RNA sequence: CAUAGAACGGCUUGCAAGGGUGGUCGGCUACCUCUCAGUGAAGGGAGGGAUGCCCAUGGAGGUUAAAGAUGCUUUGACGUUGAUGAUCGGUUUUGGUGCGCUUAUUGUAGCGCUGCUGACGCUGAUUGUUGCCAUCGUCGCAGCAAUUAACCAAAAGAAAUAGACCGCCCCCCUGCAAGGUCAGCGGUCUAUUUCUGAUCGCAAUACCGAAGCCGACCGCCUUUGAAGCGGUUUACUGUGCCAAGGAGUCGUGUUGGUCGCACGGCUC
Dot-bracket structure: (((((.(((((((.((.(((.((((...(.((((((......)))))).).......(..(((........(............)..........((............))...)))..)..........................................)))..).))).)).........(((.......)))............)))))).((((.......))))..).))))).....(((((((((.....)))))))))
Numbered sequence: 001c002a003u004a005g006a007a008c009g010g011c012u013u014g015c016a017a018g019g020g021u022g023g024u025c026g027g028c029u030a031c032c033u034c035u036c037a038g039u040g041a042a043g044g045g046a047g048g049g050a051u052g053c054c055c056a057u058g059g060a061g062g063u064u065a066a067a068g069a070u071g072c073u074u075u076g077a078c079g080u081u082g083a084u085g086a087u088c089g090g091u092u093u094u095g096g097u098g099c100g101c102u103u104a105u106u107g108u109a110g111c112g113c114u115g116c117u118g119a120c121g122c123u124g125a126u127u128g129u130u131g132c133c134a135u136c137g138u139c140g141c142a143g144c145a146a147u148u149a150a151c152c153a154a155a156a157g158a159a160a161u162a163g164a165c166c167g168c169c170c171c172c173c174u175g176c177a178a179g180g181u182c183a184g185c186g187g188u189c190u191a192u193u194u195c196u197g198a199u200c201g202c203a204a205u206a207c208c209g210a211a212g213c214c215g216a217c218c219g220c221c222u223u224u225g226a227a228g229c230g231g232u233u234u235a236c237u238g239u240g241c242c243a244a245g246g247a248g249u250c251g252u253g254u255u256g257g258u259c260g261c262a263c264g265g266c267u268c
Stems, first nucleotide, its partner, number of pairs: 001240005007234001008215006015175002018172003022168001023165003029050001031048006058120001061117003072085001096111002185197003217231004246268009

BsrG: a 268-nucleotide RNA from Paenibacillus arenilitoris. bsrE, bsrG and bsrH pair through intermolecular interactions with antisense sRNAs. They form type I toxin/antitoxin system that includes an mRNA encoding for a short, toxic peptide (bsrE, bsrG and bsrH) and an antitoxin that is comprised of an antisense RNA. bsrG encodes a 39-amino-acid toxin, and the 180 nucleotide antisense sRNA called SR4 acts as the antitoxin (they overlap by 123 nucleotides). The organism belongs to Paenibacillus, within Bacteria. The family has 6 seed sequences and 614 matches in Rfam 15.1. It scores 63 bits against the family's covariance model. Its family is annotated with autolysis and toxin activity in the Gene Ontology. By type it is a small RNA. The base pairs follow the family's consensus structure, which was predicted with WAR.